Overview:
The record is a 447-nucleotide part of an RNA from Fasciolopsis buskii, which matches "Eukaryotic large subunit ribosomal RNA" in Rfam. The source organism's lineage runs through Eukaryota, Metazoa, Digenea, Echinostomata and Fasciolopsis. The match comes from Rfam's covariance-model search (2590 bits). On this family, see Yusupov et al., Science 2001: "Crystal structure of the ribosome at 5.5 A resolution".
RNA sequence: UGACCUCGGUUCAGACGUGAUUACCCGCUGAACUUAAGCAUAUCACUAAGCGGAGGAAAAGAAACUAACCAGGAUUCCCUUAGUAACGGCGAGUGAACAGGGAAAAGCCCAGCACCGAAGCCUGUGGCCGGUUGGCCUCUAGGCAAUGUGGUGUUCAGGUUAGCUCGCGGAGGUGCUGCUCCACCCUAAGUCCUAUUAUGAGUAAGGUUACUCGGACGUGGCCCAGUGAGGGUGAAAGGCCCGUGGGGGUGGAGACUCAGAUUGGACAGUAUCUCCCUGAGCAGACCUUGGAGUCGGGUUGUUUGUGAAUGCAGCCCAAAGUGGGUGGUAAACUCCAUCCAAGGCUAAAUACUUGCACGAGUCCGAUAGCGAACAAGUACCGUGAGGGAAAGUUGAAAAGUACUUUGAAGAGAGAGUAAACAGUGCGUGAAACCGUUCAGAGGUAAA
Number, nucleotide and partner (000 for none) at each position: 001u000002g000003a000004c000005c000006u000007c000008g000009g000010u000011u000012c000013a000014g000015a000016c000017g000018u000019g000020a000021u000022u000023a000024c055025c053026c052027g051028c050029u049030g000031a000032a000033c000034u000035u042036a041037a000038g000039c000040a000041u036042a035043u000044c000045a000046c000047u000048a000049a029050g028051c027052g026053g025054a000055g024056g000057a000058a000059a000060a000061g000062a000063a000064a000065c072066u071067a000068a000069c000070c000071a066072g065073g000074a000075u000076u103077c102078c101079c100080u099081u000082a000083g000084u000085a000086a094087c093088g000089g000090c000091g000092a000093g087094u086095g000096a000097a000098c000099a080100g079101g078102g077103a076104a000105a000106a346107g345108c344109c343110c000111a000112g000113c153114a152115c151116c150117g149118a000119a147120g144121c143122c142123u141124g140125u000126g138127g137128c000129c000130g000131g000132u000133u000134g000135g000136c000137c127138u126139c000140u124141a123142g122143g121144c120145a000146a000147u119148g000149u117150g116151g115152u114153g113154u000155u000156c000157a000158g287159g286160u284161u283162a000163g282164c281165u280166c279167g000168c000169g000170g000171a000172g273173g272174u271175g270176c269177u268178g267179c000180u253181c252182c251183a250184c249185c248186c247187u000188a000189a000190g208191u000192c207193c206194u000195a000196u205197u204198a000199u000200g000201a000202g000203u000204a197205a196206g193207g192208u190209u000210a000211c000212u000213c000214g000215g000216a000217c000218g000219u000220g000221g000222c000223c000224c228225a000226g000227u000228g224229a000230g000231g241232g240233u000234g000235a000236a000237a000238g000239g000240c232241c231242c000243g000244u000245g000246g000247g186248g185249g184250u183251g182252g181253a180254g000255a000256c000257u000258c000259a000260g000261a000262u000263u000264g000265g000266a000267c178268a177269g176270u175271a174272u173273c172274u000275c000276c000277c000278u000279g166280a165281g164282c163283a161284g160285a000286c159287c158288u000289u000290g000291g000292a000293g000294u000295c000296g317297g316298g315299u314300u313301g312302u311303u000304u000305g000306u000307g000308a000309a000310u000311g302312c301313a300314g299315c298316c297317c296318a000319a000320a000321g000322u000323g340324g339325g338326u337327g336328g000329u000330a000331a000332a000333c000334u000335c000336c327337a326338u325339c324340c323341a000342a000343g109344g108345c107346u106347a000348a000349a000350u000351a000352c000353u000354u000355g000356c000357a000358c000359g000360a000361g000362u000363c000364c000365g000366a000367u000368a000369g000370c000371g000372a000373a000374c000375a000376a000377g000378u000379a000380c387381c386382g000383u000384g000385a000386g381387g380388g000389a000390a000391a000392g000393u000394u000395g000396a000397a000398a000399a000400g000401u000402a000403c414404u413405u412406u411407g000408a000409a000410g000411a406412g405413a404414g403415a000416g000417u000418a000419a000420a000421c000422a000423g000424u000425g000426c000427g000428u000429g000430a000431a000432a000433c000434c000435g000436u000437u000438c000439a000440g000441a000442g000443g000444u000445a000446a000447a000